The family of this 71-nucleotide sequence from Novipirellula artificiosorum is "int-alpA RNA". Rfam describes the family as follows. Acidobacteria (1 example), Planctomycetes (1 example), Proteobacteria. It is annotated as a small RNA.
RNA sequence: ACCGAAGCUAGGCUUAGCGGCCGAAAACCGAGCAAAACCUACUCGGCUGCUUCGGCUUUCUUCACUUAGGU
Numbered sequence: 001a002c003c004g005a006a007g008c009u010a011g012g013c014u015u016a017g018c019g020g021c022c023g024a025a026a027a028c029c030g031a032g033c034a035a036a037a038c039c040u041a042c043u044c045g046g047c048u049g050c051u052u053c054g055g056c057u058u059u060c061u062u063c064a065c066u067u068a069g070g071u
Stems, first nucleotide, its partner, number of pairs: 002055007011022004028046005037071005